[Rfam]
RNA: Singlet oxygen resistance RNA X
Organism: Flavimaricola marinus
RNA sequence: AGCCCUCGGUGGCGGGGUCAAGCCACUACCUCCCUGUUGGACUUGCCCGGGGCAUCCCCUAGAUGCACCCGGGCCUUUUU
Numbered sequence: 001a002g003c004c005c006u007c008g009g010u011g012g013c014g015g016g017g018u019c020a021a022g023c024c025a026c027u028a029c030c031u032c033c034c035u036g037u038u039g040g041a042c043u044u045g046c047c048c049g050g051g052g053c054a055u056c057c058c059c060u061a062g063a064u065g066c067a068c069c070c071g072g073g074c075c076u077u078u079u080u
Base pairs, nucleotide, nucleotide: 009026010025011024012023013022045074046073047072048071049070050069051068
Dot-bracket structure: ........(((((........)))))..................(((((((................)))))))......